[Rfam]
RNA sequence: CCUUUUUACGCAUAAUAAACCACCUAUAUAUAUUUUACUGUUCCUAUUUAAUUAGAAACAGGUAUAUAAAAACGUGCUACAUGGUUUAUUAGUUCCUAUUAAACAGACUAAAAUACAAAUAAUACUACCAAAAGGUUAUAAAAAAAACCGUAGUUUGGUAGUAUCCUUUCAUGCAAUAAAUUAUCAAUUACUUUCAAACGACGGUUCAAGAGCCGUCGUUUUAUAUAUUUUAUAAACA
Numbered sequence: 001c002c003u004u005u006u007u008a009c010g011c012a013u014a015a016u017a018a019a020c021c022a023c024c025u026a027u028a029u030a031u032a033u034u035u036u037a038c039u040g041u042u043c044c045u046a047u048u049u050a051a052u053u054a055g056a057a058a059c060a061g062g063u064a065u066a067u068a069a070a071a072a073c074g075u076g077c078u079a080c081a082u083g084g085u086u087u088a089u090u091a092g093u094u095c096c097u098a099u100u101a102a103a104c105a106g107a108c109u110a111a112a113a114u115a116c117a118a119a120u121a122a123u124a125c126u127a128c129c130a131a132a133a134g135g136u137u138a139u140a141a142a143a144a145a146a147a148c149c150g151u152a153g154u155u156u157g158g159u160a161g162u163a164u165c166c167u168u169u170c171a172u173g174c175a176a177u178a179a180a181u182u183a184u185c186a187a188u189u190a191c192u193u194u195c196a197a198a199c200g201a202c203g204g205u206u207c208a209a210g211a212g213c214c215g216u217c218g219u220u221u222u223a224u225a226u227a228u229u230u231u232a233u234a235a236a237c238a
Stems, first nucleotide, its partner, number of pairs: 003111002007107001013101005029076003033072004039066003043062003047058003078091002123163009133151001134149002196221005202215005